[Rfam]
Rfam assigns this 333-nucleotide RNA sequence from Candidozyma haemuli to the family "Nuclear RNase P". Rfam classes the family as a ribozyme. About the family: Ribonuclease P (RNase P) is a ubiquitous endoribonuclease, found in archaea, bacteria and eukarya as well as chloroplasts and mitochondria. A search with the family's covariance model found it, with a score of 54 bits.
RNA sequence: CUCGCAGCAAGCCGCAAGUACCCGCACACGAAACAGGCUCGAUUUCGACCCUGGGCCCAAAAAGCCACCGGCGGGUGGGAAAUUCGGUGAUUCUCCCCAUCCCUCUUUCCCUCUUCCUCGUGGAGAAGGAAAGCGAUUCCAAUGCUCCUGAGAGCUUCCUGGGCGUAGAAAGUUACGCUGGGCGUCGCCAUCAGAAACUGAGCUGGGGUUUCUUCCUCUGGAAGGGCUCUGGCAUGGGAGGCGGCGCGGAUGGUUGGUCUUCUGCUUUCGAGUGGAAAGGCUGUUGAGUGCAAUUUGCGGCCUCUGGCACCCGAUACCGAUCAAUGCUGCGAG
Number, nucleotide and partner (000 for none) at each position: 001c333002u332003c331004g330005c000006a000007g327008c326009a325010a000011g000012c000013c300014g000015c000016a000017a296018g295019u000020a076021c075022c074023c073024g072025c000026a000027c000028a000029c000030g000031a000032a000033a000034c000035a000036g057037g056038c055039u054040c053041g000042a000043u000044u000045u000046c000047g000048a000049c000050c000051c000052u000053g040054g039055g038056c037057c036058c000059a000060a000061a000062a000063a000064g000065c000066c000067a000068c000069c000070g000071g000072c024073g023074g022075g021076u020077g000078g000079g000080a000081a000082a000083u000084u000085c319086g318087g317088u316089g315090a000091u000092u000093c000094u000095c000096c000097c000098c000099a251100u250101c249102c248103c000104u000105c000106u000107u000108u000109c000110c000111c000112u000113c000114u000115u000116c000117c000118u000119c000120g000121u000122g000123g000124a000125g000126a000127a000128g000129g000130a000131a000132a000133g000134c000135g000136a000137u000138u000139c000140c000141a000142a000143u000144g155145c154146u153147c152148c000149u000150g000151a000152g147153a146154g145155c144156u000157u000158c000159c000160u000161g000162g179163g178164c177165g176166u175167a174168g000169a000170a000171a000172g000173u000174u167175a166176c165177g164178c163179u162180g000181g000182g247183c246184g245185u244186c243187g242188c241189c000190a000191u000192c000193a000194g000195a000196a000197a000198c000199u000200g000201a000202g233203c232204u231205g230206g229207g228208g227209u226210u225211u224212c000213u000214u000215c000216c000217u000218c000219u000220g000221g000222a000223a000224g211225g210226g209227c208228u207229c206230u205231g204232g203233c202234a000235u000236g000237g000238g000239a000240g000241g188242c187243g186244g185245c184246g183247c182248g102249g101250a100251u099252g000253g000254u000255u000256g000257g000258u000259c000260u000261u000262c000263u000264g000265c000266u000267u000268u000269c000270g000271a000272g000273u000274g000275g000276a000277a000278a000279g000280g000281c000282u000283g000284u000285u000286g000287a000288g000289u000290g000291c000292a000293a000294u000295u018296u017297g000298c000299g000300g013301c000302c307303u000304c000305u000306g000307g302308c000309a000310c000311c000312c000313g000314a000315u089316a088317c087318c086319g085320a000321u000322c000323a000324a000325u009326g008327c007328u000329g000330c004331g003332a002333g001